[Rfam]
RNA sequence: GAAACGUCAACCCCGCACCAGCAACCACUGGAUCAGACGGGGACUGCCUCACCGCAAGGUGAGGCUGCC
Numbered sequence: 001g002a003a004a005c006g007u008c009a010a011c012c013c014c015g016c017a018c019c020a021g022c023a024a025c026c027a028c029u030g031g032a033u034c035a036g037a038c039g040g041g042g043a044c045u046g047c048c049u050c051a052c053c054g055c056a057a058g059g060u061g062a063g064g065c066u067g068c069c
Stems, first nucleotide, its partner, number of pairs: 011042005018031004046065008

Transposase-2 RNA: a 69-nucleotide RNA sequence from Actinopolymorpha pittospori. Pairs were carried over by alignment from the consensus structure, which is taken from published work. A search with the family's covariance model found it, with a score of 66 bits. Rfam classes the family as a small RNA. Lineage of the source: Bacteria > Bacillati > Actinomycetota > Propionibacteriales > Actinopolymorpha.